Shown here is a 511-nucleotide part of an RNA from Desertifilum tharense, a member of the family "Bacterial small subunit ribosomal RNA". The base pairs follow the family's consensus structure, which is taken from published work. Its family is annotated with structural constituent of ribosome and ribosome in the Gene Ontology. The family is grouped with related families in Rfam's "SSU clan". NCBI's taxonomy places the organism under Bacteria, Cyanobacteriota, Desertifilales, Desertifilum, Desertifilum tharense.
RNA sequence: GUCACGGAGAGUUUGAUCCUGGCUCAGGAUGAACGCUGGCGGUCUGCUUAACACAUGCAAGUCGAACGGUGUCUUCGGACACAGUGGCGGACGGGUGAGUAACGCGUGAGAAUCUACCUUCAGGUCGGGGAUAACCCCUGGAAACGGGGGCUAAUACCGGAUAGGUCGAAAGAUGAAAGGUUAACUGCCUGAAGAGGAGCUCGCGUCUGAUUAGCUAGUAGGUGUGGUAAGAGCGCACCUAGGCGACGAUCAGUAGCUGGUCUGAGAGGAUGAGCAGCCACACUGGGACUGAGACACGGCCCAGACUCCUACGGGAGGCAGCAGUGGGGAAUUUUCCGCAAUGGGCGAAAGCCUGACGGAGCAAGACCGCGUGGGGGAGGAAGGCCUUUGGGUUGUAAACCCCUUUUGUUAGGGAAGAAAAAAAUGACGGUACCUAACGAAUCAGCCUCGGCUAACUCCGUGCCAGCAGCCGCGGUAAUACGGAGGAGGCAAGCGUUAUCCGGAAUUAUUG
Numbered sequence: 001g002u003c004a005c006g007g008a009g010a011g012u013u014u015g016a017u018c019c020u021g022g023c024u025c026a027g028g029a030u031g032a033a034c035g036c037u038g039g040c041g042g043u044c045u046g047c048u049u050a051a052c053a054c055a056u057g058c059a060a061g062u063c064g065a066a067c068g069g070u071g072u073c074u075u076c077g078g079a080c081a082c083a084g085u086g087g088c089g090g091a092c093g094g095g096u097g098a099g100u101a102a103c104g105c106g107u108g109a110g111a112a113u114c115u116a117c118c119u120u121c122a123g124g125u126c127g128g129g130g131a132u133a134a135c136c137c138c139u140g141g142a143a144a145c146g147g148g149g150g151c152u153a154a155u156a157c158c159g160g161a162u163a164g165g166u167c168g169a170a171a172g173a174u175g176a177a178a179g180g181u182u183a184a185c186u187g188c189c190u191g192a193a194g195a196g197g198a199g200c201u202c203g204c205g206u207c208u209g210a211u212u213a214g215c216u217a218g219u220a221g222g223u224g225u226g227g228u229a230a231g232a233g234c235g236c237a238c239c240u241a242g243g244c245g246a247c248g249a250u251c252a253g254u255a256g257c258u259g260g261u262c263u264g265a266g267a268g269g270a271u272g273a274g275c276a277g278c279c280a281c282a283c284u285g286g287g288a289c290u291g292a293g294a295c296a297c298g299g300c301c302c303a304g305a306c307u308c309c310u311a312c313g314g315g316a317g318g319c320a321g322c323a324g325u326g327g328g329g330a331a332u333u334u335u336c337c338g339c340a341a342u343g344g345g346c347g348a349a350a351g352c353c354u355g356a357c358g359g360a361g362c363a364a365g366a367c368c369g370c371g372u373g374g375g376g377g378a379g380g381a382a383g384g385c386c387u388u389u390g391g392g393u394u395g396u397a398a399a400c401c402c403c404u405u406u407u408g409u410u411a412g413g414g415a416a417g418a419a420a421a422a423a424a425u426g427a428c429g430g431u432a433c434c435u436a437a438c439g440a441a442u443c444a445g446c447c448u449c450g451g452c453u454a455a456c457u458c459c460g461u462g463c464c465a466g467c468a469g470c471c472g473c474g475g476u477a478a479u480a481c482g483g484a485g486g487a488g489g490c491a492a493g494c495g496u497u498a499u500c501c502g503g504a505a506u507u508a509u510u511g
Stems, first nucleotide, its partner, number of pairs: 009025005027501004032497006039370006045363002047328001052326003056323003061088003066085002069082005095281003104206007113198002118194007126160001128158002135150006166173002179186002207253003214244003219241008256278004260271004283304005306317004334360001336359003342355005373403004383394004408438006417428001445490005456485005466473002